[Rfam]
Annotation
The record is a 240-nucleotide sequence from Paramixta manurensis, which matches "Lysine riboswitch aptamer" in Rfam.

RNA sequence: CAAGCCAGAAGAGGCGCGUCGCCCAGGUAGUGUGUUGGAGGAGCCGUAUCCGGUGAAAACACAUAAGGGGGUGCGACGCCGAGGCGGGAGACACGCGGCGUGUUAACCGUCGACCGCAGGGGCUGAAUCCCCUGGGUUGUCACCAAGAUUGUUCGGCAGUCGGACAAUCUAUAUCCCGCAGUGCUGGCGUUAAAAAAGGCGUCAGCAUCGGGGUAUACAAGGUGGGGCGCUUCUGGGUGA
Numbered sequence: 001c002a003a004g005c006c007a008g009a010a011g012a013g014g015c016g017c018g019u020c021g022c023c024c025a026g027g028u029a030g031u032g033u034g035u036u037g038g039a040g041g042a043g044c045c046g047u048a049u050c051c052g053g054u055g056a057a058a059a060c061a062c063a064u065a066a067g068g069g070g071g072u073g074c075g076a077c078g079c080c081g082a083g084g085c086g087g088g089a090g091a092c093a094c095g096c097g098g099c100g101u102g103u104u105a106a107c108c109g110u111c112g113a114c115c116g117c118a119g120g121g122g123c124u125g126a127a128u129c130c131c132c133u134g135g136g137u138u139g140u141c142a143c144c145a146a147g148a149u150u151g152u153u154c155g156g157c158a159g160u161c162g163g164a165c166a167a168u169c170u171a172u173a174u175c176c177c178g179c180a181g182u183g184c185u186g187g188c189g190u191u192a193a194a195a196a197a198g199g200c201g202u203c204a205g206c207a208u209c210g211g212g213g214u215a216u217a218c219a220a221g222g223u224g225g226g227g228c229g230c231u232u233c234u235g236g237g238u239g240a
Stems, first nucleotide, its partner, number of pairs: 006235006016079007024071001030064007083111005090104005112138004117134006140225005